The record is an 84-nucleotide RNA sequence from Methylomonas methanica, which matches "c-di-GMP-I riboswitch aptamer" in Rfam.
NCBI's taxonomy places the organism under Bacteria, Gammaproteobacteria, Methylococcales, Methylomonas, Methylomonas methanica.
[Rfam]
RNA sequence: GACAUCUAUCGCCAAACCCGCUGCGAAGUGGGGGCGGAAAGUCUCGGGUCUUGAGAUUCGUUACAAGACGGCUGGAUUGCUCCC
Numbered sequence: 001g002a003c004a005u006c007u008a009u010c011g012c013c014a015a016a017c018c019c020g021c022u023g024c025g026a027a028g029u030g031g032g033g034g035c036g037g038a039a040a041g042u043c044u045c046g047g048g049u050c051u052u053g054a055g056a057u058u059c060g061u062u063a064c065a066a067g068a069c070g071g072c073u074g075g076a077u078u079g080c081u082c083c084c
Base pairs, nucleotide, nucleotide: 012037013036017032018031019030020029021028022027040078041077042076043075045074046073047072048069049068050067053061
A search with the family's covariance model found it, with a score of 44 bits.